[Rfam]
Nucleotides: 088
Stems, first nucleotide, its partner, number of pairs: 007082002010079004020036004038068003041064002045062003051055001
Number, partner (000 for none) and nucleotide at each position: 001000u002000a003000g004000a005000u006000g007082g008081a009000u010079c011078c012077g013076g014000g015000a016000g017000a018000g019000u020036c021035u022034g023033c024000a025000c026000c027000c028000u029000a030000u031000c032000u033023g034022c035021a036020g037000c038068g039067c040066c041064g042063a043000a044000g045062g046061g047060g048000a049000g050000a051055u052000g053000u054000g055051a056000g057000a058000a059000a060047c061046u062045c063042u064041c065000a066040g067039g068038c069000a070000a071000a072000a073000g074000g075000a076013c077012c078011g079010g080000u081008u082007c083000a084000c085000g086000g087000a088000c
Glycine riboswitch aptamer: an 88-nucleotide RNA from Aminicella lysinilytica. Its family is annotated with glycine biosynthetic process in the Gene Ontology. A search with the family's covariance model found it, with a score of 60 bits. The base pairs follow the family's consensus structure. The source organism's lineage runs through Bacteria, Bacillati, Clostridia, Peptostreptococcales and Aminicella.